[Rfam]
RNA sequence: AAGUGUUGUCAUGCCGCAUACGACUAUGGUAACUCUAUAAAUAUUAGUUCGAAACGAGCACAGUAAACAAGCCUAUUAUGAAAGUUUUUGCCCAAGUGAUUAGCCUAGUCGUGAUUAGCGUGGUGGUGAUUAUCCCACCAUGCGGGGCUACACUUGGACGAAGAAAGGCUUAGAAAACAAGCCAGAAUCGCAAGAAAACCCCCGCACCGCAAGGUUCGGGGGUUUUUUAUUGGCAAGAGAAAAGUGAAGCAAGAGGCAGAAAAUGAAAAACAGAGCAAAAUAUUACAGUUGUUGCAAUAAGGC
Number, nucleotide and partner (000 for none) at each position: 001a000002a000003g000004u000005g033006u032007u031008g030009u029010c028011a027012u026013g024014c000015c022016g021017c000018a000019u000020a000021c016022g015023a000024c013025u000026a012027u011028g010029g009030u008031a007032a006033c005034u000035c000036u000037a076038u075039a074040a000041a000042u071043a000044u067045u066046a000047g064048u063049u000050c058051g000052a000053a000054a000055c000056g000057a000058g050059c000060a000061c000062a000063g048064u047065a000066a045067a044068c000069a000070a000071g042072c000073c000074u039075a038076u037077u000078a000079u000080g000081a000082a000083a000084g000085u000086u254087u253088u252089u000090g250091c249092c000093c000094a245095a000096g000097u000098g000099a000100u239101u238102a000103g000104c000105c233106u232107a231108g230109u000110c120111g119112u118113g000114a000115u000116u000117a000118g112119c111120g110121u000122g139123g138124u137125g136126g135127u000128g134129a133130u000131u000132a000133u129134c128135c126136c125137a124138c123139c122140a000141u158142g000143c156144g155145g154146g153147g000148c000149u000150a000151c000152a000153c146154u145155u144156g143157g000158a141159c000160g189161a188162a000163g000164a000165a000166a000167g183168g182169c181170u180171u179172a000173g000174a000175a000176a000177a000178c000179a171180a170181g169182c168183c167184a000185g000186a000187a000188u161189c160190g000191c000192a000193a228194g227195a226196a225197a224198a223199c222200c221201c220202c219203c218204g217205c000206a215207c214208c213209g000210c000211a000212a000213g208214g207215u206216u000217c204218g203219g202220g201221g200222g199223u198224u197225u196226u195227u194228u193229a000230u108231u107232g106233g105234c000235a000236a000237g000238a101239g100240a000241a000242a000243a000244g000245u094246g000247a000248a000249g091250c090251a000252a088253g087254a086255g290256g289257c288258a000259g286260a284261a283262a000263a000264u277265g276266a000267a000268a000269a000270a000271c000272a000273g000274a000275g000276c265277a264278a000279a000280a000281u000282a000283u261284u260285a000286c259287a000288g257289u256290u255291g000292u000293u000294g000295c000296a000297a000298u000299a000300a000301g000302g000303c000

Background
This 303-nucleotide sequence from Serratia symbiotica belongs to the Rfam family "Soft rot Enterobacteriaceae Rev 39 5'UTR". For this family Rfam cites "Discovery and profiling of small RNAs responsive to stress conditions in the plant pathogen Pectobacterium atrosepticum" (Kwenda et al., BMC Genomics, 2016). Its family is annotated with cellular response to starvation in the Gene Ontology. Pairs were carried over by alignment from the consensus structure, which was predicted with RNAfold. Rfam describes the family as follows. From bacteria cultured under starvation conditions. NCBI's taxonomy places the organism under Bacteria, Pseudomonadota, Gammaproteobacteria, Serratia, Serratia symbiotica.